[Rfam]
This 46-nucleotide RNA from Novipirellula aureliae belongs to the Rfam family "Acido-Lenti-1 RNA". The family's consensus secondary structure is taken from published work. A search with the family's covariance model found it, with a score of 38 bits.

Nucleotides: 046
Stems, first nucleotide, its partner, number of pairs: 001020008033045005
Number, partner (000 for none) and nucleotide at each position: 001020c002019c003018c004017u005016g006015g007014a008013c009000g010000c011000a012000c013008g014007u015006c016005u017004g018003g019002g020001g021000c022000u023000a024000u025000c026000a027000c028000c029000u030000g031000c032000c033045g034044u035043c036042g037041c038000u039000u040000c041037g042036c043035g044034a045033c046000g